Notes:
A member of the RNA family "Bacterial large subunit ribosomal RNA" from Isosphaera pallida, 258 nucleotides of a longer RNA. Rfam's curators put it in the seed alignment.

RNA sequence: GUGGGAAGCUUGAGGAGGGUCUCCCCUAGUACGAGAGGAUUGGGGAGGACCGACCUCUGGUGUGCCGGCUGUCCCGCCCGGGGCAUCGCCGGGUAGCCAGGUCGGGAUCGGAUAAGCGCUGAAAGCAUCUAAGCGCGAAGCCAUCUCCAAGAUGAGGCUUCCAGUCGUAAGACGAAGGCUCCUGGAAGACGACCAGGUCGAUAGGCGGGAUGUGCAAGGCGAGUGAUCGUCUCAGCCGACCCGUCCUAACAGCCAACG
Numbered sequence: 001g002u003g004g005g006a007a008g009c010u011u012g013a014g015g016a017g018g019g020u021c022u023c024c025c026c027u028a029g030u031a032c033g034a035g036a037g038g039a040u041u042g043g044g045g046a047g048g049a050c051c052g053a054c055c056u057c058u059g060g061u062g063u064g065c066c067g068g069c070u071g072u073c074c075c076g077c078c079c080g081g082g083g084c085a086u087c088g089c090c091g092g093g094u095a096g097c098c099a100g101g102u103c104g105g106g107a108u109c110g111g112a113u114a115a116g117c118g119c120u121g122a123a124a125g126c127a128u129c130u131a132a133g134c135g136c137g138a139a140g141c142c143a144u145c146u147c148c149a150a151g152a153u154g155a156g157g158c159u160u161c162c163a164g165u166c167g168u169a170a171g172a173c174g175a176a177g178g179c180u181c182c183u184g185g186a187a188g189a190c191g192a193c194c195a196g197g198u199c200g201a202u203a204g205g206c207g208g209g210a211u212g213u214g215c216a217a218g219g220c221g222a223g224u225g226a227u228c229g230u231c232u233c234a235g236c237c238g239a240c241c242c243g244u245c246c247u248a249a250c251a252g253c254c255a256a257c258g
Stems, first nucleotide, its partner, number of pairs: 004162008014148004020048007050105005058099003065092005070085006110142002116136005165175003177254004181197005202248003205244005212236001218231005